Description:
Rfam assigns this 111-nucleotide sequence from Paenibacillus ginsengarvi to the family "epsC RNA". Rfam classes the family as a cis-regulatory element. Rfam 15.1 lists 450 matches to the family in 334 species. The organism belongs to Paenibacillus, within Bacteria. The match comes from Rfam's covariance-model search (117 bits).
RNA sequence: AGGUGAUGUCUACUUACCUUUAUCAAUGUAGGCACUCGACCAUGCUGUGGGCGGUUACCGCCUUAGACGUAGAUCGUCGGUGGUGUGGUGUGAGGGUGGGUUAGAUGCCCA
Number, nucleotide and partner (000 for none) at each position: 001a019002g018003g017004u016005g000006a000007u034008g033009u032010c031011u030012a029013c028014u000015u000016a004017c003018c002019u001020u000021u000022a000023u000024c000025a000026a000027u000028g013029u012030a011031g010032g009033c008034a007035c094036u093037c092038g091039a089040c088041c087042a086043u085044g084045c083046u082047g000048u000049g063050g062051g061052c060053g059054g058055u000056u000057a000058c054059c053060g052061c051062c050063u049064u000065a000066g078067a077068c076069g075070u000071a000072g000073a000074u000075c069076g068077u067078c066079g000080g000081u000082g046083g045084u044085g043086u042087g041088g040089u039090g000091u038092g037093a036094g035095g000096g000097u111098g110099g109100g108101u107102u000103a000104g000105a000106u000107g101108c100109c099110c098111a097